[Rfam]
RNA sequence: GCGAAACCCGCGCCGGUGUGCCUCGUAGGAAAGGACCGGUGCGGUGAAGGUGGGUAAAUCUCCGCCCUUGCCGGGGCAGGAGUGCCAUUUGGCGUUCGGCGUCCGGGAGUUACCGCUCCAUGGGCGCCGUCG
Numbered sequence: 001g002c003g004a005a006a007c008c009c010g011c012g013c014c015g016g017u018g019u020g021c022c023u024c025g026u027a028g029g030a031a032a033g034g035a036c037c038g039g040u041g042c043g044g045u046g047a048a049g050g051u052g053g054g055u056a057a058a059u060c061u062c063c064g065c066c067c068u069u070g071c072c073g074g075g076g077c078a079g080g081a082g083u084g085c086c087a088u089u090u091g092g093c094g095u096u097c098g099g100c101g102u103c104c105g106g107g108a109g110u111u112a113c114c115g116c117u118c119c120a121u122g123g124g125c126g127c128c129g130u131c132g
Stems, first nucleotide, its partner, number of pairs: 001093002008044009021033001023032001050088004055084002061080002064077005097129009106119005
RNA: Streptomyces RNA 6925